[Rfam]
RNA: Eukaryotic large subunit ribosomal RNA, nucleotides 1905 to 2416
RNA sequence: UGGAACAAUGUAGGCAAGGGAAGUCGGCAAAAUGGAUCCGUAACCUCGGGAAAAGGAUUGGCUACGAGGGGCUGGGCUCGGGGGUCCCAGAUCCCGAACCCGUCGGCUGUCGGUGGGCUGCUCGAGCUGCUCCCGCGGCGAGAGCGGGUCGUCAGCGUGCCGGCCGAGGGGACGGGCUCAGGAACGGCCCUUUCGGGGGGCCUUCCCGGGCGUCGAACGAGUCGACUCGAGAGCUGAGUACGGACAAGGGGAAUCCGACUGUUUAAUUAAAACAAAGCAUUGCGAUGGUCCCUGCGGAUGCUCACGCAAUGUGAUUUACGCCCGGUGCUACGAAUGUCAAAGUGAAGAAAUUCAACCAAGCGCGGGUAAGCGGCGGGAGUAACUAUGACUCUCUUAAGGUAGCCAAAUGCCUCGUCAUCUAAUUAGUGACGCGCAUGAAUGGAUUAACGAGAUUCCCACUGUCCCUGUCUACUAUCCAGCGAAACCACGGCCAAGGGAACGGGCUUGGCGGA
Numbered sequence: 001u002g003g004a005a006c007a008a009u010g011u012a013g014g015c016a017a018g019g020g021a022a023g024u025c026g027g028c029a030a031a032a033u034g035g036a037u038c039c040g041u042a043a044c045c046u047c048g049g050g051a052a053a054a055g056g057a058u059u060g061g062c063u064a065c066g067a068g069g070g071g072c073u074g075g076g077c078u079c080g081g082g083g084g085u086c087c088c089a090g091a092u093c094c095c096g097a098a099c100c101c102g103u104c105g106g107c108u109g110u111c112g113g114u115g116g117g118c119u120g121c122u123c124g125a126g127c128u129g130c131u132c133c134c135g136c137g138g139c140g141a142g143a144g145c146g147g148g149u150c151g152u153c154a155g156c157g158u159g160c161c162g163g164c165c166g167a168g169g170g171g172a173c174g175g176g177c178u179c180a181g182g183a184a185c186g187g188c189c190c191u192u193u194c195g196g197g198g199g200g201c202c203u204u205c206c207c208g209g210g211c212g213u214c215g216a217a218c219g220a221g222u223c224g225a226c227u228c229g230a231g232a233g234c235u236g237a238g239u240a241c242g243g244a245c246a247a248g249g250g251g252a253a254u255c256c257g258a259c260u261g262u263u264u265a266a267u268u269a270a271a272a273c274a275a276a277g278c279a280u281u282g283c284g285a286u287g288g289u290c291c292c293u294g295c296g297g298a299u300g301c302u303c304a305c306g307c308a309a310u311g312u313g314a315u316u317u318a319c320g321c322c323c324g325g326u327g328c329u330a331c332g333a334a335u336g337u338c339a340a341a342g343u344g345a346a347g348a349a350a351u352u353c354a355a356c357c358a359a360g361c362g363c364g365g366g367u368a369a370g371c372g373g374c375g376g377g378a379g380u381a382a383c384u385a386u387g388a389c390u391c392u393c394u395u396a397a398g399g400u401a402g403c404c405a406a407a408u409g410c411c412u413c414g415u416c417a418u419c420u421a422a423u424u425a426g427u428g429a430c431g432c433g434c435a436u437g438a439a440u441g442g443a444u445u446a447a448c449g450a451g452a453u454u455c456c457c458a459c460u461g462u463c464c465c466u467g468u469c470u471a472c473u474a475u476c477c478a479g480c481g482a483a484a485c486c487a488c489g490g491c492c493a494a495g496g497g498a499a500c501g502g503g504c505u506u507g508g509c510g511g512a
Base pairs, nucleotide, nucleotide: 001478002477003476004475010472011471012470013469014468015467016466018464019463020462035059036058037057038056039055044049060235061234062233063232065229066228067227068226070223071222072221073220074218076211077210078209079208080207081206082205083204084203085183086182087181090179091178093176099168101166102165103163104162105161106160107159108157109156110155112153113152114151115150116149118147119146120145121144122143123142126139127138128137129136130135236241249457250456251455252454253453254452255451256449257448260274261273262272277312278311279310280309281308282307283306284305288299289298290297291296316443317442320374321373322372325371326370327367328366329365332363335362336361337360343354344353345352346351375393376392377391378390379389380388394398414430415429416428417427418426491508492507493506494505495504